[Rfam]
RNA sequence: ACAAGUCUGGAGAGCGAUACGGCCGCAGGCGCGGCAGGCGUAUCCACCGAAGGGGCACCCGCCCUGACGCGUACUUACAUAUAUGUAUACGCGCAGGACGAAAUCUCUCAGGUACAAGGGACAGAUGGGGCGAA
Numbered sequence: 001a002c003a004a005g006u007c008u009g010g011a012g013a014g015c016g017a018u019a020c021g022g023c024c025g026c027a028g029g030c031g032c033g034g035c036a037g038g039c040g041u042a043u044c045c046a047c048c049g050a051a052g053g054g055g056c057a058c059c060c061g062c063c064c065u066g067a068c069g070c071g072u073a074c075u076u077a078c079a080u081a082u083a084u085g086u087a088u089a090c091g092c093g094c095a096g097g098a099c100g101a102a103a104u105c106u107c108u109c110a111g112g113u114a115c116a117a118g119g120g121a122c123a124g125a126u127g128g129g130g131c132g133a134a
Base pairs, nucleotide, nucleotide: 002129005126006125007124008123009122016044017043018042019041020040021039046113047112048111049109050108053107054106055105060100061099

Background: Glycine riboswitch aptamer: a 134-nucleotide RNA sequence from Thauera sp. 27. Its family is annotated with glycine biosynthetic process in the Gene Ontology. From the family's description: This family represents the bacterial glycine riboswitch. The source organism's lineage runs through Bacteria, Betaproteobacteria, Rhodocyclales, Zoogloeaceae and Thauera.